[Rfam]
Nucleotides: 097
Base pairs, nucleotide, nucleotide: 009023010022011021012020052087053086054085055084056078057077059075061073062072
Number, partner (000 for none) and nucleotide at each position: 001000g002000g003000u004000c005000u006000c007000c008000u009023u010022u011021g012020g013000u014000g015000g016000a017000a018000a019000u020012c021011c022010a023009a024000u025000c026000a027000c028000c029000u030000u031000a032000a033000u034000u035000u036000a037000a038000g039000a040000u041000g042000a043000g044000a045000a046000a047000c048000a049000a050000u051000u052087c053086c054085c055084c056078a057077u058000u059075g060000g061073u062072a063000u064000c065000a066000a067000a068000c069000g070000a071000u072062u073061a074000a075059c076000c077057a078056u079000u080000a081000a082000g083000c084055g085054g086053g087052g088000a089000a090000g091000u092000g093000c094000c095000u096000a097000g
The record is a 97-nucleotide sequence from Actinidia chinensis, which matches "Plastid-rps12 3UTR RNA" in Rfam.
The base pairs follow the family's consensus structure, which was predicted with LocARNA.
For this family Rfam cites "Retrograde signaling in plants: A critical review focusing on the GUN pathway and beyond" (Richter et al., Plant Commun, 2023).
Plastid rpl20 is a non-coding RNA (ncRNA) recognised in plastids. It was found in the three prime untranslated region (3UTR) of rps12 gene, its 3UTR location sugest a role in transcript maduration.
A search with the family's covariance model found it, with a score of 93 bits.